[Rfam]
RNA sequence: GUAUAGCGAUGAUGCGGAAGGUUGCGGACACACCCGGCUCCUUUGCCAAGGUGGGGUGUUCGGAUAUUUUCGCGGAGUAGUCUGUUUCCAAAAAUGGACGAAAA
Numbered sequence: 001g002u003a004u005a006g007c008g009a010u011g012a013u014g015c016g017g018a019a020g021g022u023u024g025c026g027g028a029c030a031c032a033c034c035c036g037g038c039u040c041c042u043u044u045g046c047c048a049a050g051g052u053g054g055g056g057u058g059u060u061c062g063g064a065u066a067u068u069u070u071c072g073c074g075g076a077g078u079a080g081u082c083u084g085u086u087u088c089c090a091a092a093a094a095u096g097g098a099c100g101a102a103a104a
Stems, first nucleotide, its partner, number of pairs: 014073003018070004025062007081101002087098003